[Rfam]
RNA sequence: GAAUGAAGGAAGCAUGGUACUAUGUAGAUUAAUUGAUUUUGGUCUCUAGGCCUUUCCUCUCUUAUGCCUUUUGGCUUUGAUUUCGGGCAUGGUUUAGCAACAAAACG
Dot-bracket structure: ...........((((......))))................(((.....(.(..((................))....).)....)))...................
A member of the RNA family "Small nucleolar RNA snoR100" from Rhododendron simsii, 107 nucleotides long. The match comes from Rfam's covariance-model search (65 bits). A reference for the family is Marker et al. (2002), "Experimental RNomics: identification of 140 candidates for small non-messenger RNAs in the plant Arabidopsis thaliana", Curr Biol. Rfam 15.1 lists 1,851 matches to the family in 220 species. The source organism's lineage runs through Eukaryota, Gunneridae, Ericoideae, Rhodoreae and Rhododendron. Pairs were carried over by alignment from the consensus structure, which was predicted with WAR.